Small nucleolar RNA SNORA57: a 134-nucleotide RNA from Salmo salar.
A reference for the family is Vitali et al. (2003), "Identification of 13 novel human modification guide RNAs", Nucleic Acids Res.
Rfam classes the family as an H/ACA-box small nucleolar RNA.
Taxonomically the source falls in Salmo (Eukaryota, Vertebrata, Osteoglossocephalai, Euteleosteomorpha).
Rfam describes the family as follows. U99 belongs to the H/ACA class of snoRNAs which are thought to guide the sites of modification of uridines to pseudouridines, the target for this family is unknown.
Pairs were carried over by alignment from the consensus structure, which was predicted with PFOLD.

[Rfam]
RNA sequence: UAUAAAAUUCUUGGCAUGCACGCUUUCUCCCUGUACCCGUGUAUGUUAUGGAGGGAUAACAAGGCCAGUGCUAUGUCUUCGGUGCCAGAAUGUUCCUUGUCUUCUGGUUGUGUCUUCAAUUCGCUGGUACAUCC
Numbered sequence: 001u002a003u004a005a006a007a008u009u010c011u012u013g014g015c016a017u018g019c020a021c022g023c024u025u026u027c028u029c030c031c032u033g034u035a036c037c038c039g040u041g042u043a044u045g046u047u048a049u050g051g052a053g054g055g056a057u058a059a060c061a062a063g064g065c066c067a068g069u070g071c072u073a074u075g076u077c078u079u080c081g082g083u084g085c086c087a088g089a090a091u092g093u094u095c096c097u098u099g100u101c102u103u104c105u106g107g108u109u110g111u112g113u114c115u116u117c118a119a120u121u122c123g124c125u126g127g128u129a130c131a132u133c134c
Stems, first nucleotide, its partner, number of pairs: 001058003015045006022038001026035001066126005085107006092101001